[Rfam]
RNA sequence: AUAAUGAUACUUCCGUAGCCGAAAGGCGCGGCCCGCGGAGAACCCGGGGGAGGUUAGAUUCCUAUGG
Numbered sequence: 001a002u003a004a005u006g007a008u009a010c011u012u013c014c015g016u017a018g019c020c021g022a023a024a025g026g027c028g029c030g031g032c033c034c035g036c037g038g039a040g041a042a043c044c045c046g047g048g049g050g051a052g053g054u055u056a057g058a059u060u061c062c063u064a065u066g067g
Stems, first nucleotide, its partner, number of pairs: 012064001013031004032050003036046003051063003

pemK RNA: a 67-nucleotide sequence. The base pairs follow the family's consensus structure, which is taken from published work.